Overview: A member of the RNA family "sul1 RNA" from Roseovarius tolerans, 60 nucleotides long. Rfam classes the family as a riboswitch. Taxonomically the source falls in Roseovarius (Bacteria, Pseudomonadati, Pseudomonadota, Rhodobacterales). A search with the family's covariance model found it, with a score of 49 bits.

[Rfam]
RNA sequence: ACUGGACUGCGGGUGCAACUCCUGCGGUGGCUCUUCCGGCCGCUUAUCCGCCGGAUCAUU
Numbered sequence: 001a002c003u004g005g006a007c008u009g010c011g012g013g014u015g016c017a018a019c020u021c022c023u024g025c026g027g028u029g030g031c032u033c034u035u036c037c038g039g040c041c042g043c044u045u046a047u048c049c050g051c052c053g054g055a056u057c058a059u060u
Stems, first nucleotide, its partner, number of pairs: 006028002009025004035055006